The record is a 122-nucleotide RNA sequence from Gallaecimonas xiamenensis, which matches "Phenylalanine leader peptide" in Rfam. Taxonomically the source falls in Gallaecimonas xiamenensis (Bacteria, Pseudomonadati, Gammaproteobacteria, Gallaecimonadaceae). The family's consensus secondary structure was predicted with CMfinder. Rfam 15.1 lists 379 matches to the family in 290 species. It is annotated as a cis-regulatory leader.
[Rfam]
RNA sequence: UCCAAUGCGAACACUGUUUUUCUUUAGCUUCUUCUUUACUUCCUGAACUCCAGGAGGCCUUGCUUUGGUGAAGAAGAAGCUAAAGGAAACCCAAGGCCUCCCCGUCGGGAGGCUUUUUUGUU
Numbered sequence: 001u002c003c004a005a006u007g008c009g010a011a012c013a014c015u016g017u018u019u020u021u022c023u024u025u026a027g028c029u030u031c032u033u034c035u036u037u038a039c040u041u042c043c044u045g046a047a048c049u050c051c052a053g054g055a056g057g058c059c060u061u062g063c064u065u066u067g068g069u070g071a072a073g074a075a076g077a078a079g080c081u082a083a084a085g086g087a088a089a090c091c092c093a094a095g096g097c098c099u100c101c102c103c104g105u106c107g108g109g110a111g112g113c114u115u116u117u118u119u120g121u122u
Stems, first nucleotide, its partner, number of pairs: 016090002019088001021086014036071004042054004055065004093116010